Description:
A member of the RNA family "Ruegeria cis2 sRNA" from Falsirhodobacter algicola, 150 nucleotides long. Rfam links the family to the GO term regulation of gene expression. The match comes from Rfam's covariance-model search (77 bits). The family's RNA type in Rfam is small RNA. The base pairs follow the family's consensus structure, which was predicted with RNAfold.
RNA sequence: GGAAUUGUGCGGAUGGUAGUUCAGGAACAUGUAGCCGCGCCCUUGGUCGAUGAUGUGGAACAGCGGGUUCCAAUCGAACAGCGCCAGCAUCGCGGCGGGCAGGGUGUUGGCGAGGAACAUCUUCCCCGAGGCGAUCAUGUUCGCCCGUUG
Numbered sequence: 001g002g003a004a005u006u007g008u009g010c011g012g013a014u015g016g017u018a019g020u021u022c023a024g025g026a027a028c029a030u031g032u033a034g035c036c037g038c039g040c041c042c043u044u045g046g047u048c049g050a051u052g053a054u055g056u057g058g059a060a061c062a063g064c065g066g067g068u069u070c071c072a073a074u075c076g077a078a079c080a081g082c083g084c085c086a087g088c089a090u091c092g093c094g095g096c097g098g099g100c101a102g103g104g105u106g107u108u109g110g111c112g113a114g115g116a117a118c119a120u121c122u123u124c125c126c127c128g129a130g131g132c133g134a135u136c137a138u139g140u141u142c143g144c145c146c147g148u149u150g
Base pairs, nucleotide, nucleotide: 001030005027006026008024011021012020034054036052037051038049039048041046061150062149063148064147065146067079068078069077070076083144084143086141087140088139089138090137096130098127099126101123102122103121104120105119107116108115